[Rfam]
RNA: DUF805 RNA
Organism: Chitinophaga cymbidii
RNA sequence: AGUAAGUGGAGCAGCUACCACUUCAAAAAACGGGCGGAACCGAAAAGCCAGAUGAGUAGGAAGCAA
Numbered sequence: 001a002g003u004a005a006g007u008g009g010a011g012c013a014g015c016u017a018c019c020a021c022u023u024c025a026a027a028a029a030a031c032g033g034g035c036g037g038a039a040c041c042g043a044a045a046a047g048c049c050a051g052a053u054g055a056g057u058a059g060g061a062a063g064c065a066a
Base pairs, nucleotide, nucleotide: 006021007020008019009018033049034048035047040060041059